[Rfam]
Rfam assigns this 200-nucleotide sequence from Medicago truncatula to the family "MIR2670 microRNA precursor family". It scores 202 bits against the family's covariance model. Pairs were carried over by alignment from the consensus structure, which was predicted with RNAalifold.
RNA sequence: UCGGGGUAAAAUAGUGAGAAGCCGACAUGGAAAAGUGAUCGACCCUUGGGAUAAGUUUAAAUUUGCUUUUUUUUACUCCAUAAACUUUUUACCAUGGGUAAAAAGUUUCUUCUUGGGGUAUAAAAAAAAUCAAACUUAAAUUUAGCCCAAGGGUUGAUGAUAUAUUUUCCCCAUGAAGGCUGCUCACUAUUUUACCCCAU
Number, nucleotide and partner (000 for none) at each position: 001u000002c000003g198004g197005g196006g195007u194008a193009a192010a191011a190012u189013a188014g187015u186016g185017a184018g183019a000020a181021g180022c179023c178024g000025a000026c175027a174028u173029g172030g171031a000032a000033a168034a167035g166036u000037g000038a161039u160040c159041g158042a154043c153044c152045c000046u150047u149048g148049g147050g146051a000052u144053a143054a142055g141056u000057u139058u138059a137060a136061a000062u134063u133064u132065g131066c000067u129068u128069u127070u126071u125072u124073u123074u120075a119076c118077u117078c116079c115080a114081u000082a000083a000084a000085c105086u104087u103088u102089u101090u100091a099092c098093c097094a000095u000096g000097g093098g092099u091100a090101a089102a088103a087104a086105g085106u000107u000108u000109c000110u000111u000112c000113u000114u080115g079116g078117g077118g076119u075120a074121u000122a000123a073124a072125a071126a070127a069128a068129a067130u000131c065132a064133a063134a062135c000136u060137u059138a058139a057140a000141u055142u054143u053144a052145g000146c050147c049148c048149a047150a046151g000152g044153g043154u042155u000156g000157a000158u041159g040160a039161u038162a000163u000164a000165u000166u035167u034168u033169c000170c000171c030172c029173a028174u027175g026176a000177a000178g023179g022180c021181u020182g000183c018184u017185c016186a015187c014188u013189a012190u011191u010192u009193u008194a007195c006196c005197c004198c003199a000200u000